[Rfam]
Shown here is a 431-nucleotide RNA sequence from Erythrobacteraceae bacterium CFH 75059, a member of the family "Bacterial RNase P class A". Rfam describes the family as follows. Ribonuclease P (RNase P) is a ubiquitous endoribonuclease, found in archaea, bacteria and eukarya as well as chloroplasts and mitochondria. NCBI's taxonomy places the organism under Bacteria, Pseudomonadota, Alphaproteobacteria, Sphingomonadales, Erythrobacteraceae. The family's RNA type in Rfam is ribozyme. Rfam links the family to the GO terms ribonuclease P activity, tRNA processing and dimeric ribonuclease P complex.
RNA sequence: GCCGGGGUCCAGGCAGCCGCGGACGGGGUUCCCGUUCGAGGAAAGUCCGGGCUCCACGAAACGAGGGUGGCGGGUAACGCCCGCCCGCCGCCGCCCCGCGCGGCGGUGAGGGACAGUGCCACAGAGAGCAGACCGCCGAUGGCUUCGGAGACACGUCCGGCGCACAGGCAAGGGUGAAAGGGUGCGGCAAGAGCGCACCGGGACGCUGGCAACAGGGUCCGCACGGCAAACCCCACCCGGAGCAAGGCCGAAUAGGAACGGCGCGUCCGCAUCCGUCCACCUGGACGAAGGCGGGCAGGGGAGUUUCGCCCCGAGGCCGUUCGGGUUGGCCGCUAGAGCGCGAGGAGCGAUCCCGCGCCCAGAGGAAUGGCUGCCCGUGCCGCUUUGCUAAGCGGCAUGACAGAACCCGGCUUACGCGGACCCCGGCACCA
Numbered sequence: 001g002c003c004g005g006g007g008u009c010c011a012g013g014c015a016g017c018c019g020c021g022g023a024c025g026g027g028g029u030u031c032c033c034g035u036u037c038g039a040g041g042a043a044a045g046u047c048c049g050g051g052c053u054c055c056a057c058g059a060a061a062c063g064a065g066g067g068u069g070g071c072g073g074g075u076a077a078c079g080c081c082c083g084c085c086c087g088c089c090g091c092c093g094c095c096c097c098g099c100g101c102g103g104c105g106g107u108g109a110g111g112g113a114c115a116g117u118g119c120c121a122c123a124g125a126g127a128g129c130a131g132a133c134c135g136c137c138g139a140u141g142g143c144u145u146c147g148g149a150g151a152c153a154c155g156u157c158c159g160g161c162g163c164a165c166a167g168g169c170a171a172g173g174g175u176g177a178a179a180g181g182g183u184g185c186g187g188c189a190a191g192a193g194c195g196c197a198c199c200g201g202g203a204c205g206c207u208g209g210c211a212a213c214a215g216g217g218u219c220c221g222c223a224c225g226g227c228a229a230a231c232c233c234c235a236c237c238c239g240g241a242g243c244a245a246g247g248c249c250g251a252a253u254a255g256g257a258a259c260g261g262c263g264c265g266u267c268c269g270c271a272u273c274c275g276u277c278c279a280c281c282u283g284g285a286c287g288a289a290g291g292c293g294g295g296c297a298g299g300g301g302a303g304u305u306u307c308g309c310c311c312c313g314a315g316g317c318c319g320u321u322c323g324g325g326u327u328g329g330c331c332g333c334u335a336g337a338g339c340g341c342g343a344g345g346a347g348c349g350a351u352c353c354c355g356c357g358c359c360c361a362g363a364g365g366a367a368u369g370g371c372u373g374c375c376c377g378u379g380c381c382g383c384u385u386u387g388c389u390a391a392g393c394g395g396c397a398u399g400a401c402a403g404a405a406c407c408c409g410g411c412u413u414a415c416g417c418g419g420a421c422c423c424c425g426g427c428a429c430c431a
Stems, first nucleotide, its partner, number of pairs: 001427010012375007020038008043413003047410005052242004061306001063304001065238005070084005085110001086108009111233002116231002118227003133173002135169003140164002181199006200222001201220004206215003246331004256322006298312004338358005344353003